Shown here is a 59-nucleotide sequence from Aerosakkonema funiforme, a member of the family "Nitrogen stress-induced RNA 1". The match comes from Rfam's covariance-model search (52 bits). The base pairs follow the family's consensus structure. On this family, see Ionescu et al., J Mol Biol 2010: "Heterocyst-specific transcription of NsiR1, a non-coding RNA encoded in a tandem array of direct repeats in cyanobacteria".
RNA sequence: UGGUAGAUGCACCCUGAUAAGACAACCUCCCCCGACUCUAAGAGGCGGGGGUUUUUUGA
Numbered sequence: 001u002g003g004u005a006g007a008u009g010c011a012c013c014c015u016g017a018u019a020a021g022a023c024a025a026c027c028u029c030c031c032c033c034g035a036c037u038c039u040a041a042g043a044g045g046c047g048g049g050g051g052u053u054u055u056u057u058g059a
Stems, first nucleotide, its partner, number of pairs: 002013003029051006036044003